[Rfam]
RNA sequence: UGGCCUGGUUUCCUGGGGGGUGGGCUCAGGCUACUCCACUUCCCCUCAACCGAGCCUAAAGCAAAGAGGCCAGGUGUCUUCCGGCAUGGGAGAGGUGUUUAAAGAAAGAAGCCUUACCUGGGCUGUCCUAGCCUCACAUUU
Number, nucleotide and partner (000 for none) at each position: 001u000002g056003g055004c054005c000006u052007g051008g000009u000010u000011u000012c000013c000014u000015g044016g043017g042018g041019g040020g039021u038022g037023g036024g035025c000026u000027c000028a000029g000030g000031c000032u000033a000034c000035u024036c023037c022038a021039c020040u019041u018042c017043c016044c015045c000046u000047c000048a000049a000050c000051c007052g006053a000054g004055c003056c002057u000058a000059a000060a000061g000062c000063a000064a000065a000066g135067a134068g133069g132070c131071c000072a129073g128074g127075u000076g000077u000078c122079u121080u120081c000082c000083g000084g000085c000086a000087u000088g114089g113090g112091a000092g000093a000094g000095g000096u000097g000098u000099u000100u000101a000102a000103a000104g000105a000106a000107a000108g000109a000110a000111g000112c090113c089114u088115u000116a000117c000118c000119u000120g080121g079122g078123c000124u000125g000126u000127c074128c073129u072130a000131g070132c069133c068134u067135c066136a000137c000138a000139u000140u000141u000
RNA: Small Cajal body specific RNA 21
Organism: Sciurus vulgaris